RNA sequence: UAGUAAAAUACUUUUUGGCUGUAGACAGUAGGAGCCUUUGGCUUAAUAUCCUACCGAGGUUCUUAGGUUAAUUAAUUACGCUAUGAUGCGUUUGUUAUACCUGCCUCUAUGUCUAUACCAUAGAGGCUUUUUAAUUUAUAUA
Number, nucleotide and partner (000 for none) at each position: 001u000002a000003g000004u000005a000006a000007a000008a000009u000010a000011c000012u000013u000014u000015u000016u000017g000018g000019c000020u000021g000022u000023a000024g000025a000026c000027a000028g054029u053030a052031g051032g050033a049034g042035c041036c040037u000038u000039u000040g036041g035042c034043u000044u000045a000046a000047u000048a000049u033050c032051c031052u030053a029054c028055c000056g000057a000058g000059g000060u000061u000062c000063u000064u000065a000066g000067g000068u000069u000070a000071a000072u000073u000074a000075a000076u000077u000078a000079c000080g000081c000082u000083a000084u000085g000086a000087u000088g000089c000090g000091u000092u000093u000094g000095u000096u000097a000098u000099a000100c000101c000102u000103g127104c126105c125106u124107c123108u122109a121110u120111g119112u000113c000114u000115a000116u000117a000118c000119c111120a110121u109122a108123g107124a106125g105126g104127c103128u000129u000130u000131u000132u000133a000134a000135u000136u000137u000138a000139u000140a000141u000142a000